RNA sequence: UAACCGCACAAUAAAAUAGUUCGUAUAACCUCACGGCAAUUGCUUGAACAGGGUGAGGGUUUCUACGGGGAGCCUUAACUUCCUAACUACGAAUAUGUGAUCAUUUGCG
Numbered sequence: 001u002a003a004c005c006g007c008a009c010a011a012u013a014a015a016a017u018a019g020u021u022c023g024u025a026u027a028a029c030c031u032c033a034c035g036g037c038a039a040u041u042g043c044u045u046g047a048a049c050a051g052g053g054u055g056a057g058g059g060u061u062u063c064u065a066c067g068g069g070g071a072g073c074c075u076u077a078a079c080u081u082c083c084u085a086a087c088u089a090c091g092a093a094u095a096u097g098u099g100a101u102c103a104u105u106u107g108c109g
Stems, first nucleotide, its partner, number of pairs: 019094007029058006068084005
RNA: Purine riboswitch aptamer